This 81-nucleotide sequence from Caenibius tardaugens belongs to the Rfam family "ZMP/ZTP riboswitch aptamer (pfl RNA motif)".
Its family is annotated with one-carbon metabolic process and regulation of purine nucleotide biosynthetic process in the Gene Ontology.
Pairs were carried over by alignment from the consensus structure, which is taken from published work.
The organism belongs to Caenibius tardaugens, within Bacteria.
RNA sequence: CCGCAUUCGCGUAACUGACGAGACAGGCGGAGCACCGCCGUGGAGCGCGAAGCCAGUUUGCCGCUCGUCUGGGCACCCCGA
Numbered sequence: 001c002c003g004c005a006u007u008c009g010c011g012u013a014a015c016u017g018a019c020g021a022g023a024c025a026g027g028c029g030g031a032g033c034a035c036c037g038c039c040g041u042g043g044a045g046c047g048c049g050a051a052g053c054c055a056g057u058u059u060g061c062c063g064c065u066c067g068u069c070u071g072g073g074c075a076c077c078c079c080g081a
Stems, first nucleotide, its partner, number of pairs: 003054001006051007015042001017069005027038004059075004